RNA sequence: AAGUUGAAUGUGAGGAUUGGAUGAAGUUGAGUCCAUGCCAUGUAUGGCUUUGAUAAAUGGAUUCAUUUUCCUCCAAUAUCUCAUAUUCAGCCU
Numbered sequence: 001a002a003g004u005u006g007a008a009u010g011u012g013a014g015g016a017u018u019g020g021a022u023g024a025a026g027u028u029g030a031g032u033c034c035a036u037g038c039c040a041u042g043u044a045u046g047g048c049u050u051u052g053a054u055a056a057a058u059g060g061a062u063u064c065a066u067u068u069u070c071c072u073c074c075a076a077u078a079u080c081u082c083a084u085a086u087u088c089a090g091c092c093u
Stems, first nucleotide, its partner, number of pairs: 004090005011083004016077006023070004028065003032061002
Shown here is a 93-nucleotide sequence from Aquilegia coerulea, a member of the family "MIR2275 microRNA precursor family".
It scores 61 bits against the family's covariance model.